[Rfam]
RNA sequence: AGGAUAAUACAAUGUAAGUCGCUUUGGAUAAAAGCGUCUGCCAAAAUGCCUAAA
Numbered sequence: 001a002g003g004a005u006a007a008u009a010c011a012a013u014g015u016a017a018g019u020c021g022c023u024u025u026g027g028a029u030a031a032a033a034g035c036g037u038c039u040g041c042c043a044a045a046a047u048g049c050c051u052a053a054a
Stems, first nucleotide, its partner, number of pairs: 013043001014041003020036006
RNA: UnaL2 LINE 3' element